[Rfam]
RNA sequence: UAUGUACUUCAGGGCAGGGUGAAAUUCCCGACCGGCGGUAAACCCGCGAGCCUUCGGGUUGAACUGGUGAAACUCCAGUGGCGACAGUAAAGUCUGGAUGAAAGAAGUCUUUU
Dot-bracket structure: ...(.(((((......(((.......))).[[((((((....[))))..(((....)))...(((((.......)))))].)).(((....]]))).......))))).)...

Annotation
Shown here is a 113-nucleotide RNA from Erysipelothrix sp. HDW6A, a member of the family "FMN riboswitch aptamer (RFN element)". The RFN element is a highly conserved domain that is found frequently in the 5'-untranslated regions of prokaryotic mRNAs that encode for flavin mononucleotide (FMN) biosynthesis and transport proteins. The source organism's lineage runs through Bacteria, Bacillati, Erysipelotrichia, Erysipelotrichales and Erysipelothrix. It scores 107 bits against the family's covariance model.